RNA sequence: UAAGCAGACCGCCUUAUCGCUCUGAAUUAUUUUGGAGAGGAAAGUCCGGACACCACAGGGCAGCAUAGUGGGUAACACCCAUCACCUCCUUUUGGGAGGGAGGACAAGUGCAACAGAAAGAAUGUACAGGUAAUGCUGUAGUGAAAUCAGGUAAACUCUAUGCGGUGCAAUGCCAUGUAUACCGGCUGUUAAGGAUCGCCCGUCCGUUGCCGGAGGGUAGGCAGCUAAAGGUCUUUGGUAACAAAGGCUUCAGAUAAAUGAUAAGGGCUCUGGUCUUUCGGGAUCAGAGAACAGAAUCCGGCUUACAGGUCUGCUUUUUAU
Numbered sequence: 001u002a003a004g005c006a007g008a009c010c011g012c013c014u015u016a017u018c019g020c021u022c023u024g025a026a027u028u029a030u031u032u033u034g035g036a037g038a039g040g041a042a043a044g045u046c047c048g049g050a051c052a053c054c055a056c057a058g059g060g061c062a063g064c065a066u067a068g069u070g071g072g073u074a075a076c077a078c079c080c081a082u083c084a085c086c087u088c089c090u091u092u093u094g095g096g097a098g099g100g101a102g103g104a105c106a107a108g109u110g111c112a113a114c115a116g117a118a119a120g121a122a123u124g125u126a127c128a129g130g131u132a133a134u135g136c137u138g139u140a141g142u143g144a145a146a147u148c149a150g151g152u153a154a155a156c157u158c159u160a161u162g163c164g165g166u167g168c169a170a171u172g173c174c175a176u177g178u179a180u181a182c183c184g185g186c187u188g189u190u191a192a193g194g195a196u197c198g199c200c201c202g203u204c205c206g207u208u209g210c211c212g213g214a215g216g217g218u219a220g221g222c223a224g225c226u227a228a229a230g231g232u233c234u235u236u237g238g239u240a241a242c243a244a245a246g247g248c249u250u251c252a253g254a255u256a257a258a259u260g261a262u263a264a265g266g267g268c269u270c271u272g273g274u275c276u277u278u279c280g281g282g283a284u285c286a287g288a289g290a291a292c293a294g295a296a297u298c299c300g301g302c303u304u305a306c307a308g309g310u311c312u313g314c315u316u317u318u319u320a321u
Stems, first nucleotide, its partner, number of pairs: 002316009011306001012266007020037007042304003046301005051167004058201004063163005068082005083102001085099006103158002108156002110152002125140005171223004182213005193205004230249008
A member of the RNA family "Bacterial RNase P class A" from Salinimicrobium catena, 321 nucleotides long. The family's RNA type in Rfam is ribozyme.